[Rfam]
RNA: Small nucleolar RNA SNORA72
Organism: Otolemur garnettii
RNA sequence: UUGUAUAAAUUGUUGUUAGUCUGAUUUUGUAAUAGGACAGGCUAACAUUCACUUCGUUGAGACCAUGCAUGUGUCCCCAAACCUAAUUCUUUGCCUAGGUCUGCUUUUAUAAAUGGUGAUAAAC
Numbered sequence: 001u002u003g004u005a006u007a008a009a010u011u012g013u014u015g016u017u018a019g020u021c022u023g024a025u026u027u028u029g030u031a032a033u034a035g036g037a038c039a040g041g042c043u044a045a046c047a048u049u050c051a052c053u054u055c056g057u058u059g060a061g062a063c064c065a066u067g068c069a070u071g072u073g074u075c076c077c078c079a080a081a082c083c084u085a086a087u088u089c090u091u092u093g094c095c096u097a098g099g100u101c102u103g104c105u106u107u108u109a110u111a112a113a114u115g116g117u118g119a120u121a122a123a124c
Stems, first nucleotide, its partner, number of pairs: 003052002016045008025035002062117004078103002081100005